[Rfam]
RNA sequence: UCCUCCUACAAAGGCGUGUCUGUGGUUCCCUGUCUUUGGACAUGUAAGAAUUGGAGAAAAUAAAUGUGGAUUUGGGAAACUUUGAGGCCAGCUUGCUUCUUGCAGGCUCAUGAUCAACCAAUCUCACAUAA
Numbered sequence: 001u002c003c004u005c006c007u008a009c010a011a012a013g014g015c016g017u018g019u020c021u022g023u024g025g026u027u028c029c030c031u032g033u034c035u036u037u038g039g040a041c042a043u044g045u046a047a048g049a050a051u052u053g054g055a056g057a058a059a060a061u062a063a064a065u066g067u068g069g070a071u072u073u074g075g076g077a078a079a080c081u082u083u084g085a086g087g088c089c090a091g092c093u094u095g096c097u098u099c100u101u102g103c104a105g106g107c108u109c110a111u112g113a114u115c116a117a118c119c120a121a122u123c124u125c126a127c128a129u130a131a
Stems, first nucleotide, its partner, number of pairs: 003056004015044007024030002068124003072120001090108007
RNA: Small nucleolar RNA SNORA38